A member of the RNA family "TPP riboswitch aptamer (THI element)" from Naumannella halotolerans, 92 nucleotides long. Rfam links the family to the GO term thiamine pyrophosphate binding. About the family: Vitamin B(1) in its active form thiamin pyrophosphate (TPP) is an essential coenzyme that is synthesised by coupling of pyrimidine and thiazole moieties in bacteria. Taxonomically the source falls in Naumannella (Bacteria, Actinomycetota, Propionibacteriales, Propionibacteriaceae).

RNA sequence: GCAAGUGACACGGGGUGCGCCACGGUGCUGAGAUCACACCCGUUGAACCUGAUCUAGUUCGUACUAGCGAAGGGAUGUCCGUAUGCGCGACC
Number, nucleotide and partner (000 for none) at each position: 001g000002c000003a000004a000005g000006u000007g079008a078009c077010a076011c042012g041013g040014g039015g000016u036017g028018c027019g026020c025021c000022a000023c000024g000025g020026u019027g018028c017029u000030g000031a000032g000033a000034u000035c000036a016037c000038a000039c014040c013041c012042g011043u000044u000045g000046a000047a000048c073049c072050u071051g000052a000053u000054c067055u066056a065057g064058u000059u000060c000061g000062u000063a000064c057065u056066a055067g054068c000069g000070a000071a050072g049073g048074g000075a000076u010077g009078u008079c007080c000081g000082u000083a000084u000085g000086c000087g000088c000089g000090a000091c000092c000